The record is a 141-nucleotide RNA from Falsochrobactrum ovis, which matches "Alphaproteobacterial sRNA BjrC1505" in Rfam. The pairing is the family consensus, mapped onto this sequence.

RNA sequence: UGGAAUCUUAACCCUUUGUUAAUCUUAAUGGCUUUAACUAUUAAUUAUCCAGUUCGGCUGGAUUCUUACCGAGUGGUUAUAGCCGCUCUGUUUGACGCCUCCCUGUUAAACUCCGAGAGCCGCCAACGCGGCUCUUUUUUU
Numbered sequence: 001u002g003g004a005a006u007c008u009u010a011a012c013c014c015u016u017u018g019u020u021a022a023u024c025u026u027a028a029u030g031g032c033u034u035u036a037a038c039u040a041u042u043a044a045u046u047a048u049c050c051a052g053u054u055c056g057g058c059u060g061g062a063u064u065c066u067u068a069c070c071g072a073g074u075g076g077u078u079a080u081a082g083c084c085g086c087u088c089u090g091u092u093u094g095a096c097g098c099c100u101c102c103c104u105g106u107u108a109a110a111c112u113c114c115g116a117g118a119g120c121c122g123c124c125a126a127c128g129c130g131g132c133u134c135u136u137u138u139u140u141u
Stems, first nucleotide, its partner, number of pairs: 001040001002014002015037002021034002024031002047063004071088006094107004115136009